Shown here is a 122-nucleotide RNA sequence from Araneus ventricosus, a member of the family "U11 spliceosomal RNA". Rfam classes the family as a spliceosomal small nuclear RNA.
RNA sequence: GAAAAGGGGGUUUGCCUGCUAAAUGGCACGCAGUCUCUUGGGGCUGUGCAGAAUCGCUAGCAAAAGAUUCUGAACACAAAAUUUUUGAAAACUGGAGGAUGCAAAUGCUUUUAGCGCCUCGA
Numbered sequence: 001g002a003a004a005a006g007g008g009g010g011u012u013u014g015c016c017u018g019c020u021a022a023a024u025g026g027c028a029c030g031c032a033g034u035c036u037c038u039u040g041g042g043g044c045u046g047u048g049c050a051g052a053a054u055c056g057c058u059a060g061c062a063a064a065a066g067a068u069u070c071u072g073a074a075c076a077c078a079a080a081a082u083u084u085u086u087g088a089a090a091a092c093u094g095g096a097g098g099a100u101g102c103a104a105a106u107g108c109u110u111u112u113a114g115c116g117c118c119u120c121g122a
Stems, first nucleotide, its partner, number of pairs: 008077001010075003013028004029048008049072007095120004106116004
Taxonomically the source falls in Araneus (Eukaryota, Opisthokonta, Arthropoda, Araneomorphae).